[Rfam]
RNA sequence: CGGCCACAAGACGACGUGAACGGGUCGGCUCCGACUUCGGUCAGGGCCUGGCCCAGGAAAGUCCCCGGGCCGUACACCGCAGAGAUGCGGGCUCGGAAACGAGUGAGCUUCGAGCGUGGAAUCGAUUUGCACUUGUGCGAAUGGGCUGAGACGCGUGUGGAGCCUUAUGGUUCAACGCCGAGUGGACUUGGCCGAUGCACAGUUAUUCACGUGGCCCGAUUGGGCUAACUGAACGGGGCUUACGAUCUUGUGGCC
Number, nucleotide and partner (000 for none) at each position: 001c000002g255003g254004c253005c252006a251007c250008a249009a248010g247011a246012c000013g000014a212015c211016g210017u209018g208019a207020a000021c000022g000023g054024g053025u000026c000027g000028g000029c000030u000031c000032c000033g000034a000035c000036u000037u000038c000039g000040g000041u000042c000043a000044g000045g000046g000047c000048c000049u000050g000051g000052c000053c024054c023055a000056g000057g000058a000059a241060a240061g239062u000063c238064c237065c236066c235067g000068g000069g000070c000071c000072g000073u000074a000075c000076a000077c000078c089079g088080c087081a086082g000083a000084g000085a000086u081087g080088c079089g078090g000091g104092c103093u102094c101095g100096g000097a000098a000099a000100c095101g094102a093103g092104u091105g000106a000107g183108c182109u181110u000111c000112g000113a000114g178115c177116g176117u175118g000119g173120a000121a000122u000123c000124g000125a000126u000127u000128u000129g000130c000131a171132c170133u169134u000135g000136u000137g000138c000139g000140a000141a000142u000143g165144g164145g163146c162147u000148g000149a000150g000151a000152c000153g158154c000155g000156u000157g000158u153159g000160g000161a000162g146163c145164c144165u143166u000167a000168u000169g133170g132171u131172u000173c119174a000175a117176c116177g115178c114179c000180g000181a109182g108183u107184g000185g000186a000187c000188u000189u000190g000191g000192c000193c000194g000195a000196u000197g000198c000199a000200c000201a000202g000203u000204u000205a000206u000207u019208c018209a017210c016211g015212u014213g000214g225215c224216c223217c222218g000219a000220u000221u000222g217223g216224g215225c214226u000227a000228a000229c000230u000231g000232a000233a000234c000235g066236g065237g064238g063239c061240u060241u059242a000243c000244g000245a000246u011247c010248u009249u008250g007251u006252g005253g004254c003255c002

About this RNA
The family of this 255-nucleotide RNA sequence from Rhododendron williamsianum is "RNase MRP". Pairs were carried over by alignment from the consensus structure, which is taken from published work. It scores 84 bits against the family's covariance model. Rfam links the family to the GO terms rRNA processing, ribonuclease MRP complex and ribonuclease MRP activity. It is annotated as a ribozyme.